[Rfam]
RNA sequence: GCGCGGGACACUCCUCCCCGCCGAGGAGCGCCCAUCUGCAAGGAUGGAUCCG
Numbered sequence: 001g002c003g004c005g006g007g008a009c010a011c012u013c014c015u016c017c018c019c020g021c022c023g024a025g026g027a028g029c030g031c032c033c034a035u036c037u038g039c040a041a042g043g044a045u046g047g048a049u050c051c052g
Stems, first nucleotide, its partner, number of pairs: 011028006032047006